[Rfam]
RNA sequence: CGCCUUUAUUGCCAUAAGCGAGGUAUAGAGUUCCUACGUUCAUUUAAACUUUCGUAGGAACUUAAUACCGUGCUCUUGGAGGGCUGUU
Numbered sequence: 001c002g003c004c005u006u007u008a009u010u011g012c013c014a015u016a017a018g019c020g021a022g023g024u025a026u027a028g029a030g031u032u033c034c035u036a037c038g039u040u041c042a043u044u045u046a047a048a049c050u051u052u053c054g055u056a057g058g059a060a061c062u063u064a065a066u067a068c069c070g071u072g073c074u075c076u077u078g079g080a081g082g083g084c085u086g087u088u
Stems, first nucleotide, its partner, number of pairs: 012079003017074004022069005028063010
The record is an 88-nucleotide RNA sequence from Lucilia cuprina, which matches "mir-276 microRNA precursor family" in Rfam. On this family, see Skalsky et al., BMC Genomics 2010: "Identification of microRNAs expressed in two mosquito vectors, Aedes albopictus and Culex quinquefasciatus". The base pairs follow the family's consensus structure, which was predicted with RNAalifold. The match comes from Rfam's covariance-model search (89 bits). The family has 42 seed sequences and 200 matches in Rfam 15.1.